The family of this 93-nucleotide RNA sequence from Digitaria exilis is "Small nucleolar RNA Z157/R69/R10".
It is annotated as a C/D-box small nucleolar RNA.
A reference for the family is Chen et al. (2003), "The high diversity of snoRNAs in plants: identification and comparative study of 120 snoRNA genes from Oryza sativa", Nucleic Acids Res.
Taxonomically the source falls in Digitaria (Eukaryota, Tracheophyta, Magnoliopsida, Poaceae).
The family's consensus secondary structure was predicted with PFOLD.
RNA sequence: GAUGGAGCAGUGAUGAGCAUUCUGUGGACUAGAGUUUCUGAUACUUCCUCAGUAGUAUUUGAUUACCAACCCCUUGGCUGUCUGAGCUCUGAA
Numbered sequence: 001g002a003u004g005g006a007g008c009a010g011u012g013a014u015g016a017g018c019a020u021u022c023u024g025u026g027g028a029c030u031a032g033a034g035u036u037u038c039u040g041a042u043a044c045u046u047c048c049u050c051a052g053u054a055g056u057a058u059u060u061g062a063u064u065a066c067c068a069a070c071c072c073c074u075u076g077g078c079u080g081u082c083u084g085a086g087c088u089c090u091g092a093a
Stems, first nucleotide, its partner, number of pairs: 003091006037062002042057004047052001